[Rfam]
Nucleotides: 090
Base pairs, nucleotide, nucleotide: 006085007084008083009082010081011080013079014078021035022034023033024032037070038069039068040066041065044064045063046062050058051057
Number, partner (000 for none) and nucleotide at each position: 001000c002000g003000a004000c005000g006085u007084c008083g009082a010081u011080c012000a013079g014078g015000g016000a017000g018000a019000g020000a021035c022034c023033g024032g025000g026000c027000u028000g029000g030000c031000c032024c033023c034022g035021g036000c037070g038069c039068c040066g041065a042000a043000g044064g045063a046062g047000c048000a049000a050058c051057c052000g053000c054000c055000c056000c057051g058050g059000a060000a061000a062046c063045u064044c065041u066040c067000a068039g069038g070037c071000a072000g073000a074000a075000g076000g077000a078014c079013c080011g081010a082009u083008c084007g085006a086000c087000g088000a089000c090000g